[Rfam]
RNA sequence: UGGUCAUGAUGUCCAAACUCACGAUGGUCUGCAGAGUCCCCCGGGUGAGGGGCUGCUGACAAUGCCACUGGCACGUGCUGAACCACGGGG
Numbered sequence: 001u002g003g004u005c006a007u008g009a010u011g012u013c014c015a016a017a018c019u020c021a022c023g024a025u026g027g028u029c030u031g032c033a034g035a036g037u038c039c040c041c042c043g044g045g046u047g048a049g050g051g052g053c054u055g056c057u058g059a060c061a062a063u064g065c066c067a068c069u070g071g072c073a074c075g076u077g078c079u080g081a082a083c084c085a086c087g088g089g090g
Stems, first nucleotide, its partner, number of pairs: 001085004
Rfam assigns this 90-nucleotide RNA sequence from Leptocoma aspasia to the family "Small nucleolar RNA SNORD35". The family is grouped with related families in Rfam's "SNORD35 clan". Pairs were carried over by alignment from the consensus structure, which was predicted with PFOLD. The literature on the family includes a 1996 paper in J Mol Biol by Nicoloso et al., "Intron-encoded, antisense small nucleolar RNAs: the characterization of nine novel species points to their direct role as guides for the 2'-O-ribose methylation of rRNAs". Its family is annotated with nucleolus and RNA processing in the Gene Ontology.